Notes: Rfam assigns this 248-nucleotide RNA from Niallia endozanthoxylica to the family "HNH endonuclease-associated RNA and ORF (HEARO) RNA". The literature on the family includes a 2009 paper in Nature by Weinberg et al., "Exceptional structured noncoding RNAs revealed by bacterial metagenome analysis".
RNA sequence: GUGAACUACCACGAGCCUAAAGGCACCGUGGCUUUUGAAAAAGAAGCGACAUGGUUUUAGGAUUGUCCCUUCAAGGGUAAGUUUACCAGACUGAGAUAGGAGAAAUCCUAACUACGAUAGAUCGGUCAUGACACCUUCGGUUGACGCACCAGACCGUUGCUCUGUCGCUUGCAUUUAAGUAGAGGCGAGGUAAACCUCGGUGAUGCAAGUGUAAAAAGCUGAUGUAUCAUUGUCGAGGUGAGGUCGGA
Numbered sequence: 001g002u003g004a005a006c007u008a009c010c011a012c013g014a015g016c017c018u019a020a021a022g023g024c025a026c027c028g029u030g031g032c033u034u035u036u037g038a039a040a041a042a043g044a045a046g047c048g049a050c051a052u053g054g055u056u057u058u059a060g061g062a063u064u065g066u067c068c069c070u071u072c073a074a075g076g077g078u079a080a081g082u083u084u085a086c087c088a089g090a091c092u093g094a095g096a097u098a099g100g101a102g103a104a105a106u107c108c109u110a111a112c113u114a115c116g117a118u119a120g121a122u123c124g125g126u127c128a129u130g131a132c133a134c135c136u137u138c139g140g141u142u143g144a145c146g147c148a149c150c151a152g153a154c155c156g157u158u159g160c161u162c163u164g165u166c167g168c169u170u171g172c173a174u175u176u177a178a179g180u181a182g183a184g185g186c187g188a189g190g191u192a193a194a195c196c197u198c199g200g201u202g203a204u205g206c207a208a209g210u211g212u213a214a215a216a217a218g219c220u221g222a223u224g225u226a227u228c229a230u231u232g233u234c235g236a237g238g239u240g241a242g243g244u245c246g247g248a
Base pairs, nucleotide, nucleotide: 001086002085003084004083005082006081007080010031012028013027016023017022032043033042034041035040089234090233091232093230094113095112097110098109099108100107101106116228117227118226119225121223122222123221124220125219126218131165132164135159138156139155140154141153142152143244145242147240148239149238150237167210168209169208170207171206172205173204174203175202179201180200182198183197184196185195